Shown here is a 50-nucleotide RNA from Enamovirus ALVE, a member of the family "Exoribonuclease-resistant RNA (xrRNA) plant-infecting virus (class 3)". NCBI's taxonomy places the organism under Viruses, Riboviria, Pisuviricota, Solemoviridae, Enamovirus ALVE. The family's RNA type in Rfam is cis-regulatory element.
RNA sequence: AACACAGCCAAUAAUCUUGUUGCAAUAGUUGGAGUGUUCAGCCAAGAUGC
Numbered sequence: 001a002a003c004a005c006a007g008c009c010a011a012u013a014a015u016c017u018u019g020u021u022g023c024a025a026u027a028g029u030u031g032g033a034g035u036g037u038u039c040a041g042c043c044a045a046g047a048u049g050c
Stems, first nucleotide, its partner, number of pairs: 001037001008032002011030001012027002015047005

Rfam describes the family as follows. Exoribonuclease-resistant RNA (xrRNA) plant-infecting virus (class 3) is a ncRNA that was reported in Plant viruses.